[Rfam]
A member of the RNA family "Manganese Mn2+ riboswitch aptamer (yybP-ykoY)" from Sphingopyxis sp. MC1, 179 nucleotides long. The match comes from Rfam's covariance-model search (46 bits). Lineage of the source: Bacteria > Pseudomonadati > Pseudomonadota > Sphingopyxidaceae > Sphingopyxis. On this family, see Argaman et al., Curr Biol 2001: "Novel small RNA-encoding genes in the intergenic regions of Escherichia coli". Rfam's curators write: This RNA was originally discovered in E. coli during a large scale screen and was named SraF. The family was later found to exist upstream of related families of protein genes in many bacteria, including the the yybP and ykoK genes in B. subtilis. The specific functions of these proteins are unknown, but this structured RNA element may be involved in their genetic regulation as a riboswitch. The base pairs follow the family's consensus structure.
RNA sequence: ACCCCCGUCAUCUGGGGAGUAGCCAGCCGUCCUGCCGGACGGGCCGCAGCGUCAACAUACUCGGUCGAGAGGCCGUGGCGCCGCGGAAGCGCGAAAGCGUUUGGGCGAGACCAAUGGCGUCGCACCUUCGUCCGGGCCGGGCGGCGGGCGCGAUCGCUGUUGGAGUUCGCUUGCCGCUC
Number, nucleotide and partner (000 for none) at each position: 001a000002c000003c000004c000005c000006c000007g000008u000009c000010a000011u000012c000013u000014g000015g000016g000017g000018a000019g000020u000021a000022g000023c000024c000025a000026g000027c042028c041029g040030u000031c000032c000033u000034g000035c000036c000037g000038g000039a000040c029041g028042g027043g000044c086045c085046g084047c083048a000049g081050c080051g079052u078053c077054a076055a000056c000057a000058u000059a000060c000061u000062c075063g074064g073065u072066c071067g000068a000069g000070a000071g066072g065073c064074c063075g062076u054077g053078g052079c051080g050081c049082c000083g047084c046085g045086g044087a000088a000089g000090c000091g000092c000093g000094a000095a000096a000097g000098c000099g000100u000101u000102u000103g000104g000105g000106c000107g000108a000109g000110a000111c000112c000113a000114a000115u000116g000117g000118c000119g000120u000121c000122g000123c000124a000125c000126c000127u000128u000129c000130g000131u000132c000133c000134g000135g000136g000137c000138c000139g000140g000141g000142c000143g000144g000145c000146g000147g000148g000149c000150g000151c000152g000153a000154u000155c000156g000157c000158u000159g000160u000161u000162g000163g000164a000165g000166u000167u000168c000169g000170c000171u000172u000173g000174c000175c000176g000177c000178u000179c000